[Rfam]
RNA: Bacterial large signal recognition particle RNA
RNA sequence: CCGUGCUAGAUGGGGAGUCAGCGGUGCCCUGUAACCUGCAAUCCGCUAUAGCAGGGUCGAAGUCCUGGUUUAGGUUUUAGCCUGUAGGGUCUGCCCUAAGUAAGUGGUGUUGAGGGCUGGGUCCCACGCAAUGUAAGCCCGUGAAUCUCGUCAGGUCCGGAAGGAAGCAGCGAUAAGCGGUGUCUUGCAUGUGCCGUGGAUCAAUCUGGUCUGAGCUUACUGCUUAGGUAACGCCUAUAAGCUACUAUCGAUGCCAGGUGCACGG
Number, nucleotide and partner (000 for none) at each position: 001c265002c264003g263004u262005g261006c260007u000008a000009g058010a057011u056012g030013g029014g028015g027016a000017g025018u024019c023020a000021g000022c000023g019024g018025u017026g000027c015028c014029c013030u012031g000032u000033a000034a000035c055036c054037u053038g052039c051040a000041a000042u000043c000044c000045g000046c000047u000048a000049u000050a000051g039052c038053a037054g036055g035056g011057u010058c009059g000060a000061a000062g000063u000064c258065c257066u256067g255068g254069u253070u000071u000072a000073g249074g248075u247076u000077u000078u000079a243080g242081c241082c000083u239084g238085u237086a236087g235088g234089g000090u000091c000092u230093g229094c000095c000096c227097u226098a225099a224100g223101u222102a000103a000104g220105u219106g217107g216108u215109g000110u000111u000112g000113a000114g212115g211116g210117c209118u208119g207120g206121g205122u204123c000124c199125c198126a197127c196128g195129c191130a190131a000132u189133g188134u187135a186136a185137g000138c000139c180140c179141g178142u177143g000144a000145a000146u000147c000148u173149c172150g171151u170152c000153a000154g000155g000156u165157c164158c163159g000160g000161a000162a000163g158164g157165a156166a000167g000168c000169a000170g151171c150172g149173a148174u000175a000176a000177g142178c141179g140180g139181u000182g000183u000184c000185u136186u135187g134188c133189a132190u130191g129192u000193g000194c000195c128196g127197u126198g125199g124200a000201u000202c000203a000204a122205u121206c120207u119208g118209g117210u116211c115212u114213g000214a000215g108216c107217u106218u000219a105220c104221u000222g101223c100224u099225u098226a097227g096228g000229u093230a092231a000232c000233g000234c088235c087236u086237a085238u084239a083240a000241g081242c080243u079244a000245c000246u000247a075248u074249c073250g000251a000252u000253g069254c068255c067256a066257g065258g064259u000260g006261c005262a004263c003264g002265g001